[Rfam]
RNA sequence: AGCUGACGCACCGGACGACCUCCUGUCGUCGCGCCAGCUGUUCCCCUCUGGAGGUUCAUUGACCUUCCAACUGUAAGGGCCGCGGAGCGAUCCGGCGGCCCAUUUU
Numbered sequence: 001a002g003c004u005g006a007c008g009c010a011c012c013g014g015a016c017g018a019c020c021u022c023c024u025g026u027c028g029u030c031g032c033g034c035c036a037g038c039u040g041u042u043c044c045c046c047u048c049u050g051g052a053g054g055u056u057c058a059u060u061g062a063c064c065u066u067c068c069a070a071c072u073g074u075a076a077g078g079g080c081c082g083c084g085g086a087g088c089g090a091u092c093c094g095g096c097g098g099c100c101c102a103u104u105u106u
Stems, first nucleotide, its partner, number of pairs: 001039005007033003015029004050067006077101006083094004
Source information: Shown here is a 106-nucleotide RNA from Neorhizobium sp. SOG26, a member of the family "Alphaproteobacterial ar15". The pairing is the family consensus, mapped onto this sequence. Gene Ontology term of the family: protein binding. The organism belongs to Neorhizobium, within Bacteria.